[Rfam]
Rfam assigns this 71-nucleotide RNA from a Kiloniellaceae bacterium to the family "Makes More Granules Regulator RNA (mmgR)".
RNA sequence: GCCAGACGUCCAUAGGGCGUUUCCUCCCUAAACUUGGGCCACCGCUUGCGGUGGCCUUUUUUUUGGGAACG
Numbered sequence: 001g002c003c004a005g006a007c008g009u010c011c012a013u014a015g016g017g018c019g020u021u022u023c024c025u026c027c028c029u030a031a032a033c034u035u036g037g038g039c040c041a042c043c044g045c046u047u048g049c050g051g052u053g054g055c056c057u058u059u060u061u062u063u064u065g066g067g068a069a070c071g
Base pairs, nucleotide, nucleotide: 008018009017010016011015037056038055039054040053041052042051043050044049
Background: NCBI's taxonomy places the organism under Bacteria, Pseudomonadati, Pseudomonadota, Rhodospirillales, Kiloniellaceae.